[Rfam]
The record is a 55-nucleotide sequence from Parasporobacterium paucivorans, which matches "Na+ riboswitch aptamer (DUF1646)" in Rfam. The source organism's lineage runs through Bacteria, Bacillota, Clostridia, Lachnospirales and Parasporobacterium paucivorans. Gene Ontology terms of the family: sodium ion binding and regulation of gene expression. A reference for the family is White et al. (2022), "Na(+) riboswitches regulate genes for diverse physiological processes in bacteria", Nat Chem Biol. It scores 42 bits against the family's covariance model.
RNA sequence: GGUUGGCAGCUUGGUUUUUGGCUGUUUCAAGUCUUGGCUUAUAGGGUGGAGAGCU
Numbered sequence: 001g002g003u004u005g006g007c008a009g010c011u012u013g014g015u016u017u018u019u020g021g022c023u024g025u026u027u028c029a030a031g032u033c034u035u036g037g038c039u040u041a042u043a044g045g046g047u048g049g050a051g052a053g054c055u
Stems, first nucleotide, its partner, number of pairs: 003030003006025006036055005042049001